[Rfam]
RNA sequence: UUGCGGCGUCGCGACUGGCGCCGGAGGUGGGACACCACCGGGGAGCGACUUGGACGGCAGUCGGCCGCGCGCCUGGGCCGAUGCG
Numbered sequence: 001u002u003g004c005g006g007c008g009u010c011g012c013g014a015c016u017g018g019c020g021c022c023g024g025a026g027g028u029g030g031g032a033c034a035c036c037a038c039c040g041g042g043g044a045g046c047g048a049c050u051u052g053g054a055c056g057g058c059a060g061u062c063g064g065c066c067g068c069g070c071g072c073c074u075g076g077g078c079c080g081a082u083g084c085g
Stems, first nucleotide, its partner, number of pairs: 004053001006051001008049005015042002017073005027038004062080005
Dot-bracket structure: ...(.(.(((((..(([[[[[.....((((....))))..))..))))).).)........(((((..]]]]]..))))).....
Overview: The family of this 85-nucleotide sequence from Microbacterium sp. JB110 is "ZMP/ZTP riboswitch aptamer (pfl RNA motif)". The match comes from Rfam's covariance-model search (57 bits). Rfam links the family to the GO terms one-carbon metabolic process and regulation of purine nucleotide biosynthetic process.